[Rfam]
RNA sequence: GGCCUCCCUCUGUGGGGCGAUUGAUGGCAGGGCUCUGUGAUUGAUUGCCCCGCAGAGGGAGGCC
Numbered sequence: 001g002g003c004c005u006c007c008c009u010c011u012g013u014g015g016g017g018c019g020a021u022u023g024a025u026g027g028c029a030g031g032g033c034u035c036u037g038u039g040a041u042u043g044a045u046u047g048c049c050c051c052g053c054a055g056a057g058g059g060a061g062g063c064c
Stems, first nucleotide, its partner, number of pairs: 001064025027038004
RNA: mir-9242 microRNA precursor family